A member of the RNA family "Group II catalytic intron D1-D4-5" from Turicibacter sp. HGF1, 209 nucleotides long.
Group II introns are found in rRNA, tRNA and mRNA of organelles in fungi, plants and protists, and also in mRNA in bacteria.
[Rfam]
RNA sequence: UAGAACUAUUAUUGCGAAGAGUAGAAUGAUAGGGUAACGCCUUGAAAUGCUCUCUCAAAGUUACGAUUAGCAUAACAUUGAGUGAACAAUGGUGUGUUAAAAGCUCGUUAAAACGGACUAGGUAUUACCGUAAGAUGUGGUUAAACAAAUCACAACACGAAAAGCGAACUAGAGGUAGUCGAGUAAUAUAUGGUUCUAGAGUCCAUAAA
Numbered sequence: 001u002a003g004a005a006c007u008a009u010u011a012u013u014g015c016g017a018a019g020a021g022u023a024g025a026a027u028g029a030u031a032g033g034g035u036a037a038c039g040c041c042u043u044g045a046a047a048u049g050c051u052c053u054c055u056c057a058a059a060g061u062u063a064c065g066a067u068u069a070g071c072a073u074a075a076c077a078u079u080g081a082g083u084g085a086a087c088a089a090u091g092g093u094g095u096g097u098u099a100a101a102a103g104c105u106c107g108u109u110a111a112a113a114c115g116g117a118c119u120a121g122g123u124a125u126u127a128c129c130g131u132a133a134g135a136u137g138u139g140g141u142u143a144a145a146c147a148a149a150u151c152a153c154a155a156c157a158c159g160a161a162a163a164g165c166g167a168a169c170u171a172g173a174g175g176u177a178g179u180c181g182a183g184u185a186a187u188a189u190a191u192g193g194u195u196c197u198a199g200a201g202u203c204c205a206u207a208a209a
Base pairs, nucleotide, nucleotide: 018053019052020051021050022049023048031043032042033041034040054201055200056199063108064107065106066105067100068099069098070097071096072095073094074093076091077090078089079088080087115197116196117195119193123188124187125186126185127184128183129159130158131157136154137153138152139151140150141149142148165181166180168179169178170177171176